[Rfam]
RNA sequence: AAAGUAUAAACUGAGCAGGUUAUAGACCCUGCGGGGUUCAUGUAGCCGGGCCGGUCAACGGCAGCAGAUAAAAACAUCUGUGGGACAGUA
Number, nucleotide and partner (000 for none) at each position: 001a000002a000003a000004g000005u000006a000007u000008a000009a000010a089011c088012u087013g086014a000015g000016c084017a000018g047019g046020u045021u044022a041023u040024a000025g038026a037027c036028c000029c000030u000031g000032c000033g000034g000035g000036g027037u026038u025039c000040a023041u022042g000043u000044a021045g020046c019047c018048g000049g000050g062051c061052c060053g059054g000055u000056c000057a000058a000059c053060g052061g051062c050063a000064g081065c080066a079067g078068a077069u076070a000071a000072a000073a000074a000075c000076a069077u068078c067079u066080g065081u064082g000083g000084g016085a000086c013087a012088g011089u010090a000
RNA: NiCo (Nickel/Cobalt) riboswitch aptamer
Organism: Sporotomaculum syntrophicum